RNA sequence: AUUUCUUUUAACAUAUCAGGAAGUCAAAUUCACAACGAAGAAAGAAGUAGGAAGUCAAAAGCCAUCAAUAUUGCCUAUAACCAAAACCCAUAAACCCAUACCAUGCUUCUUUCUUCGUUGCCAAUUUGACUUCCUGAUAUGUUAAAAGCAAU
Numbered sequence: 001a002u003u004u005c006u007u008u009u010a011a012c013a014u015a016u017c018a019g020g021a022a023g024u025c026a027a028a029u030u031c032a033c034a035a036c037g038a039a040g041a042a043a044g045a046a047g048u049a050g051g052a053a054g055u056c057a058a059a060a061g062c063c064a065u066c067a068a069u070a071u072u073g074c075c076u077a078u079a080a081c082c083a084a085a086a087c088c089c090a091u092a093a094a095c096c097c098a099u100a101c102c103a104u105g106c107u108u109c110u111u112u113c114u115u116c117g118u119u120g121c122c123a124a125u126u127u128g129a130c131u132u133c134c135u136g137a138u139a140u141g142u143u144a145a146a147a148g149c150a151a152u
Base pairs, nucleotide, nucleotide: 005148006147007146008145009144010143011142012141013140014139015138016137017136018135020133021132022131023130024129025128026127027126028125029124030123033120034119035118036117037116038115039114040113041112042111043110044109045108046107048105049104051102
RNA: MIR8643 microRNA precursor family
Organism: Gossypium aridum